RNA sequence: AAUUUCGAGCGAUCGCGGUUAGCUUAUGCUAGCUGAGGAAAGUCCACGCACGCACAAGCUGAGAUGCUUGUAGUUUUUGUACUCAGCCCAAUAAGCUGGGGAACUUGUUUUUACAAGUUACGGCGGAAAAAGCACUAAAUCAUUUUUGACAUGUGUGACUAUCCUGAAAAGUGCCACAGUGACGAAGCAGUGAAGGAAACUUUGCUGGUGGAACGAGGUAAACCCUGCAAGCGGGCAACCCAAAUUUGGUAGGGGCGCUUUCGUCUAAGUAAAUGAACUAAAGACGAGGUCAUUUUUAAUGAAGAUAGAUGGUCGCUGAAAAUAGGAAUUAACCAAAUCCUAUUGGAACAGAACGUGGCUUAUAGAG
Number, nucleotide and partner (000 for none) at each position: 001a000002a000003u000004u367005u366006c365007g363008a317009g316010c315011g314012a313013u312014c311015g000016c035017g034018g033019u032020u031021a030022g000023c000024u000025u000026a000027u000028g000029c000030u021031a020032g019033c018034u017035g016036a000037g000038g000039a000040a361041a360042g359043u000044c358045c357046a356047c355048g354049c235050a000051c233052g232053c231054a071055c070056a069057a068058g067059c066060u000061g000062a000063g000064a000065u000066g059067c058068u057069u056070g055071u054072a000073g000074u000075u000076u000077u230078u229079g228080u227081a226082c100083u099084c098085a097086g096087c095088c000089c000090a000091a000092u000093a000094a000095g087096c086097u085098g084099g083100g082101g121102a119103a118104c117105u116106u115107g114108u000109u000110u000111u000112u000113a000114c107115a106116a105117g104118u103119u102120a000121c101122g225123g224124c000125g164126g163127a162128a000129a000130a000131a000132g156133c155134a154135c153136u000137a000138a000139a000140u149141c148142a000143u000144u000145u000146u000147u000148g141149a140150c000151a000152u000153g135154u134155g133156u132157g000158a000159c000160u000161a000162u127163c126164c125165u000166g000167a000168a000169a000170a000171g223172u222173g219174c218175c217176a000177c000178a000179g000180u000181g000182a000183c000184g000185a000186a000187g000188c207189a206190g205191u204192g203193a202194a201195g200196g000197a000198a000199a000200c195201u194202u193203u192204g191205c190206u189207g188208g000209u000210g000211g000212a000213a000214c000215g000216a000217g175218g174219u173220a000221a000222a172223c171224c123225c122226u081227g080228c079229a078230a077231g053232c052233g051234g000235g049236c000237a000238a000239c254240c253241c252242a000243a000244a000245u000246u000247u000248g000249g000250u000251a000252g241253g240254g239255g000256c000257g000258c289259u000260u288261u287262c286263g285264u284265c283266u000267a000268a000269g000270u000271a000272a000273a000274u000275g000276a000277a000278c000279u000280a000281a000282a000283g265284a264285c263286g262287a261288g260289g258290u302291c301292a300293u299294u298295u000296u000297u000298a294299a293300u292301g291302a290303a000304g000305a000306u000307a000308g000309a000310u000311g014312g013313u012314c011315g010316c009317u008318g000319a000320a000321a344322a343323u342324a341325g340326g339327a338328a000329u000330u000331a000332a000333c000334c000335a000336a000337a000338u327339c326340c325341u324342a323343u322344u321345g000346g000347a000348a000349c000350a000351g000352a000353a000354c048355g047356u046357g045358g044359c042360u041361u040362a000363u007364a000365g006366a005367g004
This 367-nucleotide RNA from Lactobacillus johnsonii belongs to the Rfam family "Bacterial RNase P class B".
Clan: RNaseP clan.
Ribonuclease P (RNase P) is a ubiquitous endoribonuclease, found in archaea, bacteria and eukarya as well as chloroplasts and mitochondria. Its best characterised activity is the generation of mature 5'-ends of tRNAs by cleaving the 5'-leader elements of precursor-tRNAs. Cellular RNase Ps are ribonucleoproteins. RNA from bacterial RNase Ps retains its catalytic activity in the absence of the protein subunit, i.e. it is a ribozyme. Isolated eukaryotic and archaeal RNase P RNA has not been shown to retain its catalytic function, but is still essential for the catalytic activity of the holoenzyme. Although the archaeal and eukaryotic holoenzyme s have a much greater protein content than the bacterial ones, the RNA cores from all the three lineages are homologous -- helices corresponding to P1, P2, P3, P4, and P10/11 are common to all cellular RNase P RNAs. Yet, there is considerable sequence variation, particularly among the eukaryotic RNAs.
The sequence is in the family's curated seed alignment.
NCBI's taxonomy places the organism under Bacteria, Bacillati, Bacillota, Lactobacillus, Lactobacillus johnsonii.